RNA sequence: UUCCUCAUGGCCCAAUGGUCAAGGCGUCUGGCUACGAUUUAGUAACCACUUCUGGAACCAGAAGAUUCCAGGUUCGACUCCUGGUGGGGAAG
Numbered sequence: 001u002u003c004c005u006c007a008u009g010g011c012c013c014a015a016u017g018g019u020c021a022a023g024g025c026g027u028c029u030g031g032c033u034a035c036g037a038u039u040u041a042g043u044a045a046c047c048a049c050u051u052c053u054g055g056a057a058c059c060a061g062a063a064g065a066u067u068c069c070a071g072g073u074u075c076g077a078c079u080c081c082u083g084g085u086g087g088g089g090a091a092g
Base pairs, nucleotide, nucleotide: 001091002090003089004088005087006086007085010025011024012023027062028061029060030059031058068084069083070082071081072080
A member of the RNA family "tRNA" from Spathaspora passalidarum, 92 nucleotides long. It is annotated as a transfer RNA. Rfam's curators write: Transfer RNA (tRNA) molecules are approximately 80 nucleotides in length. Their secondary structure includes four short double-helical elements and three loops (D, anti-codon, and T loops). Further hydrogen bonds mediate the characteristic L-shaped molecular structure. tRNAs have two regions of fundamental functional importance: the anti-codon, which is responsible for specific mRNA codon recognition, and the 3' end, to which the tRNAs corresponding amino acid is attached (by aminoacyl-tRNA synthetases). tRNAs cope with the degeneracy of the genetic code in two manners: having more than one tRNA (with a specific anti-codon) for a particular amino acid; and 'wobble' base-pairing, i.e. permitting non-standard base-pairing at the 3rd anti-codon position.